[Rfam]
RNA sequence: CUGUCUCUUGCUUCAACAGUAUUGGACGGAACAG
Numbered sequence: 001c002u003g004u005c006u007c008u009u010g011c012u013u014c015a016a017c018a019g020u021a022u023u024g025g026a027c028g029g030a031a032c033a034g
Stems, first nucleotide, its partner, number of pairs: 001034004006030003010027001012026005
The record is a 34-nucleotide sequence from Cnephaeus nilssonii, which matches "Iron response element I" in Rfam. On this family, see Hentze et al., Science 1987: "Identification of the iron-responsive element for the translational regulation of human ferritin mRNA". The family's consensus secondary structure is taken from published work. Rfam links the family to the GO term response to iron ion.